[Rfam]
RNA sequence: GAUCCGGGAAGUCCCCAUCCGACAGCGCGUUGCGCCCUCGGGUGUUUUUCUG
Numbered sequence: 001g002a003u004c005c006g007g008g009a010a011g012u013c014c015c016c017a018u019c020c021g022a023c024a025g026c027g028c029g030u031u032g033c034g035c036c037c038u039c040g041g042g043u044g045u046u047u048u049u050c051u052g
Base pairs, nucleotide, nucleotide: 016044017043018042019041020040021039022038025035026034027033028032

About this RNA
ffh sRNA: a 52-nucleotide RNA from Cohaesibacter celericrescens. The family's consensus secondary structure is taken from published work. It scores 59 bits against the family's covariance model. By type it is a small RNA.